[Rfam]
RNA sequence: CAGUGAGGUAGAGGCGCGGUGUUUAACAGUCUUUAGAGGAGCUUUGAGAAGCAAUGAUUCUAAGGAGAAGGAAAUAUCGCCGAAGUGAGUAAUAUUCUCAAGUAUUGCUUGCUGGGUCUGCAGUUAAGAGCUGCAGGACUGUCUCAGUGAACCUCCCAAGUUUACUGAGUUGUGCUAUCUCGACU
Numbered sequence: 001c002a003g004u005g006a007g008g009u010a011g012a013g014g015c016g017c018g019g020u021g022u023u024u025a026a027c028a029g030u031c032u033u034u035a036g037a038g039g040a041g042c043u044u045u046g047a048g049a050a051g052c053a054a055u056g057a058u059u060c061u062a063a064g065g066a067g068a069a070g071g072a073a074a075u076a077u078c079g080c081c082g083a084a085g086u087g088a089g090u091a092a093u094a095u096u097c098u099c100a101a102g103u104a105u106u107g108c109u110u111g112c113u114g115g116g117u118c119u120g121c122a123g124u125u126a127a128g129a130g131c132u133g134c135a136g137g138a139c140u141g142u143c144u145c146a147g148u149g150a151a152c153c154u155c156c157c158a159a160g161u162u163u164a165c166u167g168a169g170u171u172g173u174g175c176u177a178u179c180u181c182g183a184c185u
Stems, first nucleotide, its partner, number of pairs: 006180006016080009031065008084113012114140002117137008143169009
The record is a 185-nucleotide RNA from Bacillus yapensis, which matches "Lysine riboswitch aptamer" in Rfam. Rfam describes the family as follows. Riboswitches are metabolite binding domains within certain messenger RNAs that serve as precision sensors for their corresponding targets. NCBI's taxonomy places the organism under Bacteria, Bacillati, Bacillota, Bacilli, Bacillus.